[Rfam]
RNA sequence: AAGAUAUAAUUUCAUAGCACUCGUAUAAUCUUGGGGAUAUGGCCCAUAAGUUUCUACCGGAUGACCAACGUAAUCGUCCGACUAUGAGUGAAAGCGUGUCUAGG
Number, nucleotide and partner (000 for none) at each position: 001a000002a000003g000004a000005u000006a000007u000008a000009a000010u000011u000012u000013c000014a000015u000016a000017g000018c090019a089020c088021u087022c086023g085024u084025a083026u000027a000028a000029u049030c000031u000032u046033g045034g044035g043036g000037a000038u000039a000040u000041g000042g000043c035044c034045c033046a032047u000048a000049a029050g000051u000052u000053u000054c000055u000056a000057c000058c080059g079060g078061a077062u076063g075064a074065c000066c000067a000068a000069c000070g000071u000072a000073a000074u064075c063076g062077u061078c060079c059080g058081a000082c000083u025084a024085u023086g022087a021088g020089u019090g018091a000092a000093a000094g000095c000096g000097u000098g000099u000100c000101u000102a000103g000104g000
RNA: Purine riboswitch aptamer
Organism: Cohnella pontilimi